Glycine riboswitch aptamer: a 114-nucleotide RNA from Bordetella genomosp. 4.

[Rfam]
RNA sequence: ACACAGCACUCUGGAGAGACCUGGCGCCGCGGAUUCCGUGCGUAGCCCAGGCGCCGAAGGUGCAAACCCGCACAACGCGGGGCAACUCUCAGGCAAAAGGACAGAGGGGCGGAA
Numbered sequence: 001a002c003a004c005a006g007c008a009c010u011c012u013g014g015a016g017a018g019a020c021c022u023g024g025c026g027c028c029g030c031g032g033a034u035u036c037c038g039u040g041c042g043u044a045g046c047c048c049a050g051g052c053g054c055c056g057a058a059g060g061u062g063c064a065a066a067c068c069c070g071c072a073c074a075a076c077g078c079g080g081g082g083c084a085a086c087u088c089u090c091a092g093g094c095a096a097a098a099g100g101a102c103a104g105a106g107g108g109g110c111g112g113a114a
Base pairs, nucleotide, nucleotide: 007108009106010105011104012103013102020051021050022049023048053094054093055092056090057089060088062086067081068080069079070078